Shown here is a 70-nucleotide RNA from Cladophialophora yegresii, a member of the family "bZIP non canonical Hac1/Xbp1 intron".
For this family Rfam cites "Conserved RNA structures in the non-canonical Hac1/Xbp1 intron" (Hooks and Griffiths-Jones, RNA Biol, 2011).
Rfam's curators write: bZIP intron RNA is a non-canonical intron that was first reported in HAC1 gene in yeast and XBP1 gene in Metazoa.
The organism belongs to Cladophialophora yegresii, within Eukaryota.
RNA sequence: CAAUGUCUCCGGUAUGACACAAUAUCCUGCUGUGGUAUUGUGUGACCUGCAGUGUCAGCCGGAGACUUGG
Numbered sequence: 001c002a003a004u005g006u007c008u009c010c011g012g013u014a015u016g017a018c019a020c021a022a023u024a025u026c027c028u029g030c031u032g033u034g035g036u037a038u039u040g041u042g043u044g045a046c047c048u049g050c051a052g053u054g055u056c057a058g059c060c061g062g063a064g065a066c067u068u069g070g
Stems, first nucleotide, its partner, number of pairs: 001070001003068001005066003010061004021039006044056003